[Rfam]
Shown here is a 184-nucleotide sequence from Arthrobacter mobilis, a member of the family "c-di-AMP riboswitch aptamer (ydaO/yuaA leader)". The match comes from Rfam's covariance-model search (54 bits).
RNA sequence: CCUGUCAGCGCGCCAGUCCAACAGACAUACCAGACAGGGGUGGAGGAACCACCGCCGGCGCCCUCGGCGCCUUGGGGUGAAGCCCGUCAGUCCGGAUGCGGCAUGCUCGCCGCCAGCUGACCAUGGCCGAGACGACUCUCUCUCGAAUCCGACAGCUAACUUCGCAGGCGUCCAGAGAGGAAAA
Number, nucleotide and partner (000 for none) at each position: 001c038002c037003u036004g035005u034006c033007a000008g000009c000010g000011c000012g000013c000014c000015a000016g000017u000018c000019c000020a000021a000022c000023a000024g000025a000026c000027a000028u000029a000030c000031c000032a000033g006034a005035c004036a003037g002038g001039g000040g165041u164042g163043g162044a161045g160046g000047a000048a000049c000050c074051a073052c000053c000054g000055c000056c000057g000058g000059c000060g000061c000062c000063c000064u000065c000066g000067g000068c000069g000070c000071c000072u000073u051074g050075g150076g149077g148078u000079g000080a000081a000082g000083c126084c125085c000086g000087u000088c000089a000090g000091u000092c000093c000094g000095g000096a000097u000098g000099c000100g000101g000102c000103a000104u000105g000106c000107u000108c000109g000110c000111c000112g000113c000114c000115a000116g000117c000118u000119g000120a000121c000122c000123a000124u000125g084126g083127c000128c000129g144130a143131g142132a141133c000134g000135a000136c000137u000138c000139u000140c000141u132142c131143u130144c129145g000146a000147a000148u077149c076150c075151g000152a000153c000154a000155g000156c000157u000158a000159a000160c045161u044162u043163c042164g041165c040166a000167g000168g000169c000170g000171u000172c000173c000174a000175g000176a000177g000178a000179g000180g000181a000182a000183a000184a000